[Rfam]
RNA: mir-205 microRNA precursor family
Organism: Menidia menidia
RNA sequence: GUAUUCUAUCCUUCAUUCCACCGGAGUCUGUAUAAAGUGCUAACCAGAUUUCAGUGGUUUGAGGAGUAGAACACA
Numbered sequence: 001g002u003a004u005u006c007u008a009u010c011c012u013u014c015a016u017u018c019c020a021c022c023g024g025a026g027u028c029u030g031u032a033u034a035a036a037g038u039g040c041u042a043a044c045c046a047g048a049u050u051u052c053a054g055u056g057g058u059u060u061g062a063g064g065a066g067u068a069g070a071a072c073a074c075a
Stems, first nucleotide, its partner, number of pairs: 011064005019056003023052004028047003